Description:
Rfam assigns this 68-nucleotide RNA from Cynoglossus semilaevis to the family "mir-33 microRNA precursor family". A reference for the family is Li et al. (2009), "Direct sequencing and expression analysis of a large number of miRNAs in Aedes aegypti and a multi-species survey of novel mosquito miRNAs", BMC Genomics. Its family is annotated with gene silencing by miRNA and RISC complex in the Gene Ontology. Rfam 15.1 lists 1,467 matches to the family in 815 species.
[Rfam]
RNA sequence: CUGUUGUGCAUUGUAGUUGCAUUGCAUGUCAGAAUAGCUCAGUGCAAUGGAUCUGCUGUGCAACACAG
Numbered sequence: 001c002u003g004u005u006g007u008g009c010a011u012u013g014u015a016g017u018u019g020c021a022u023u024g025c026a027u028g029u030c031a032g033a034a035u036a037g038c039u040c041a042g043u044g045c046a047a048u049g050g051a052u053c054u055g056c057u058g059u060g061c062a063a064c065a066c067a068g
Stems, first nucleotide, its partner, number of pairs: 001068004006064001007062005013056004021048007